[Rfam]
RNA: TPP riboswitch aptamer (THI element)
Organism: Pseudomethylobacillus aquaticus
RNA sequence: AGCCAUUGCUAGGGGUCUGUAUGCAGCUGCAUGCAGUGAGAAAUACCCUUCGAACCUGAUGCGGGUGAUGCCGCCGUAGGGAAGCACAUCGCUUCCCUA
Numbered sequence: 001a002g003c004c005a006u007u008g009c010u011a012g013g014g015g016u017c018u019g020u021a022u023g024c025a026g027c028u029g030c031a032u033g034c035a036g037u038g039a040g041a042a043a044u045a046c047c048c049u050u051c052g053a054a055c056c057u058g059a060u061g062c063g064g065g066u067g068a069u070g071c072c073g074c075c076g077u078a079g080g081g082a083a084g085c086a087c088a089u090c091g092c093u094u095c096c097c098u099a
Stems, first nucleotide, its partner, number of pairs: 007086004011049004016043001017036007055080004061074004